[Rfam]
Rfam assigns this 111-nucleotide sequence from Planococcus massiliensis to the family "BsrF". The literature on the family includes a 2008 paper in Gene by Saito et al., "Novel small RNA-encoding genes in the intergenic regions of Bacillus subtilis". Lineage of the source: Bacteria > Bacillati > Bacilli > Caryophanaceae > Planococcus.
Nucleotides: 111
Base pairs, nucleotide, nucleotide: 014077015076016075017074018073024071025070027068029065030064031063032062035044036043046061047060049058050057051056089111090110091109092108093107094106095105096104097103
Number, partner (000 for none) and nucleotide at each position: 001000g002000c003000g004000a005000u006000g007000a008000g009000c010000u011000c012000g013000u014077u015076u016075g017074c018073g019000u020000a021000a022000g023000a024071c025070g026000g027068a028000c029065a030064a031063g032062c033000a034000u035044u036043c037000c038000u039000u040000a041000u042000g043036g044035a045000g046061c047060a048000c049058g050057u051056u052000g053000u054000g055000g056051a057050g058049c059000g060047u061046g062032g063031c064030u065029u066000g067000a068027u069000a070025c071024g072000c073018c074017g075016c076015a077014a078000a079000c080000u081000a082000u083000c084000g085000a086000a087000a088000a089111c090110c091109c092108c093107c094106a095105u096104g097103c098000c099000u100000u101000u102000g103097g104096c105095g106094u107093g108092g109091g110090g111089g